[Rfam]
TPP riboswitch aptamer (THI element): a 103-nucleotide RNA sequence from Melghirimyces algeriensis. NCBI's taxonomy places the organism under Bacteria, Bacillati, Bacilli, Caryophanales, Melghirimyces. It scores 77 bits against the family's covariance model.
RNA sequence: CGGUACCACUAGGGGUGCACUUUUGUGCUGAGAGAGGUUACGACCUCAACCCUUUGAACUUGAACUGGAUGAUACCAGCGUAAGAAAGUGGGGACCGACCGAC
Numbered sequence: 001c002g003g004u005a006c007c008a009c010u011a012g013g014g015g016u017g018c019a020c021u022u023u024u025g026u027g028c029u030g031a032g033a034g035a036g037g038u039u040a041c042g043a044c045c046u047c048a049a050c051c052c053u054u055u056g057a058a059c060u061u062g063a064a065c066u067g068g069a070u071g072a073u074a075c076c077a078g079c080g081u082a083a084g085a086a087a088g089u090g091g092g093g094a095c096c097g098a099c100c101g102a103c
Stems, first nucleotide, its partner, number of pairs: 006091005011053004017028004035046004059084004065078004